[Rfam]
Rfam assigns this 89-nucleotide RNA sequence from Cohnella zeiphila to the family "BsrC".
The family's consensus secondary structure was predicted with CMfinder.
The 301 nucleotide sequence from Kouji Nakamura has been trimmed to a highly conserved ~85 nucleotide long core to form this family.
RNA sequence: UUCCACGAAAACAACGAAGGCCCUGCCUCUCCAACGUUCUUGCGGUUCCGAUGACCGCGCCAGUGGUGAAUUCGUGUUCCUUCAAGCAG
Numbered sequence: 001u002u003c004c005a006c007g008a009a010a011a012c013a014a015c016g017a018a019g020g021c022c023c024u025g026c027c028u029c030u031c032c033a034a035c036g037u038u039c040u041u042g043c044g045g046u047u048c049c050g051a052u053g054a055c056c057g058c059g060c061c062a063g064u065g066g067u068g069a070a071u072u073c074g075u076g077u078u079c080c081u082u083c084a085a086g087c088a089g
Stems, first nucleotide, its partner, number of pairs: 035068002039063002041059007